[Rfam]
Source information
PyrR binding site: a 118-nucleotide RNA from Bacillus sp. FJAT-27231. A reference for the family is Bonner et al. (2001), "Molecular recognition of pyr mRNA by the Bacillus subtilis attenuation regulatory protein PyrR", Nucleic Acids Res. Gene Ontology terms of the family: pyrimidine nucleobase transport and pyrimidine nucleobase biosynthetic process.
RNA sequence: GAACCUUUUAAAAAUGUCCAGAGAGGCAUUUAAGGGUGUGGGACAAUCUUCUGCAUGGCAUUUCCGUCAAAACAUUGUCUAAUGGCUAAACACCCUUGAAAAUGGGUGUUUUUUUUAU
Dot-bracket structure: .(.((((.....((((((......)))))).)))).)((.(((((((.((....................)).))))))).))....((((((((.(....).)))))))).......